RNA sequence: UAAACAUAAAUUUGUAUAGAGUUGAAACAGCUUCCCUUCGUGUAUCACUAGGGGCGUUCGUUCAACUCGAUACAAAUUUGAGUUA
Numbered sequence: 001u002a003a004a005c006a007u008a009a010a011u012u013u014g015u016a017u018a019g020a021g022u023u024g025a026a027a028c029a030g031c032u033u034c035c036c037u038u039c040g041u042g043u044a045u046c047a048c049u050a051g052g053g054g055c056g057u058u059c060g061u062u063c064a065a066c067u068c069g070a071u072a073c074a075a076a077u078u079u080g081a082g083u084u085a
Stems, first nucleotide, its partner, number of pairs: 008079009020067007028060001030058001035053003040048002

The record is an 85-nucleotide RNA from Bombyx mori, which matches "mir-2807 microRNA precursor family" in Rfam. The literature on the family includes a 2010 paper in BMC Genomics by Liu et al., "MicroRNAs of Bombyx mori identified by Solexa sequencing". The source organism's lineage runs through Eukaryota, Opisthokonta, Protostomia, Obtectomera and Bombyx.